[Rfam]
RNA sequence: CGUGUGGUGUACGGCUUUGAUUCGUAUAGCGACACGGCCUACUAUUGAGGU
Numbered sequence: 001c002g003u004g005u006g007g008u009g010u011a012c013g014g015c016u017u018u019g020a021u022u023c024g025u026a027u028a029g030c031g032a033c034a035c036g037g038c039c040u041a042c043u044a045u046u047g048a049g050g051u
Stems, first nucleotide, its partner, number of pairs: 001036005007030002011025004016020001
RNA: L31-Gammaproteobacteria ribosomal protein leader
Organism: Vibrio sagamiensis